[Rfam]
RNA: Fluoride riboswitch aptamer (crcB RNA motif)
Organism: Clostridium cadaveris
RNA sequence: AAAUAUAAAGGUGAAGGAGUUCACCUAUAAAUGCUAUAAGCUGAUGACUCCUAUAAGAUA
Numbered sequence: 001a002a003a004u005a006u007a008a009a010g011g012u013g014a015a016g017g018a019g020u021u022c023a024c025c026u027a028u029a030a031a032u033g034c035u036a037u038a039a040g041c042u043g044a045u046g047a048c049u050c051c052u053a054u055a056a057g058a059u060a
Stems, first nucleotide, its partner, number of pairs: 010025004016051006033041003